[Rfam]
RNA sequence: CGAGACCCCCAGAUGACCGCGGUCCGGCGCAUCCGCGCGGACUGAGGAACUUCCGGGCUCCACAGAGCACGAUGGCGGAUAACGUCCGCCCAGGGCGACCUGAGAGAUAGCGCAACAGAGAACAGACCGCCCGGCCCGGCCGGGUAAGGGUGAAACGGCGGUGUAAGAGACCACCGGACGACCGGUAACGGAAGUCGCAUGGCAAGCCUCAUCGGGAGCAAGGCCAAGCAGAAGGCGUCAAGGGCUGCUCGCCCGUGCCUUCGGGUAGGCUGCUGGAGCCUGACGGCAACGUCAGGUCGAGAUGGAUGGUCAUCCGUAUGGUUCCUCCAUACGACAGAACCCGGGGUACCGGGGGUCUCGUUUC
Numbered sequence: 001c002g003a004g005a006c007c008c009c010c011a012g013a014u015g016a017c018c019g020c021g022g023u024c025c026g027g028c029g030c031a032u033c034c035g036c037g038c039g040g041a042c043u044g045a046g047g048a049a050c051u052u053c054c055g056g057g058c059u060c061c062a063c064a065g066a067g068c069a070c071g072a073u074g075g076c077g078g079a080u081a082a083c084g085u086c087c088g089c090c091c092a093g094g095g096c097g098a099c100c101u102g103a104g105a106g107a108u109a110g111c112g113c114a115a116c117a118g119a120g121a122a123c124a125g126a127c128c129g130c131c132c133g134g135c136c137c138g139g140c141c142g143g144g145u146a147a148g149g150g151u152g153a154a155a156c157g158g159c160g161g162u163g164u165a166a167g168a169g170a171c172c173a174c175c176g177g178a179c180g181a182c183c184g185g186u187a188a189c190g191g192a193a194g195u196c197g198c199a200u201g202g203c204a205a206g207c208c209u210c211a212u213c214g215g216g217a218g219c220a221a222g223g224c225c226a227a228g229c230a231g232a233a234g235g236c237g238u239c240a241a242g243g244g245c246u247g248c249u250c251g252c253c254c255g256u257g258c259c260u261u262c263g264g265g266u267a268g269g270c271u272g273c274u275g276g277a278g279c280c281u282g283a284c285g286g287c288a289a290c291g292u293c294a295g296g297u298c299g300a301g302a303u304g305g306a307u308g309g310u311c312a313u314c315c316g317u318a319u320g321g322u323u324c325c326u327c328c329a330u331a332c333g334a335c336a337g338a339a340c341c342c343g344g345g346g347u348a349c350c351g352g353g354g355g356u357c358u359c360g361u362u363u364c
Base pairs, nucleotide, nucleotide: 001360002359003358004357005356006355007354008353009352010351012314013313014312015311016310017309018308020044021043022042023041024040025039026038049347050346051345053344054343055342056341057340058218059217060216061215065250066249067248068247070214071213072212073211074210075089076088077087078086079085090104091102092101093100094099105209106208110207111206112203113202127149128148129145130144131143132142133141134140135139157175158174160172161171162170176198177196178195179194182191183190184189222271223270224269225268231262232261233260234259235258236257242254243253244252245251278297279296280295281294282293283292284291285290
The record is a 364-nucleotide RNA sequence from Bifidobacterium primatium, which matches "Bacterial RNase P class A" in Rfam.
The base pairs follow the family's consensus structure, which is taken from published work.
Lineage of the source: Bacteria > Bacillati > Actinomycetes > Bifidobacteriales > Bifidobacterium.
Rfam's curators write: Ribonuclease P (RNase P) is a ubiquitous endoribonuclease, found in archaea, bacteria and eukarya as well as chloroplasts and mitochondria.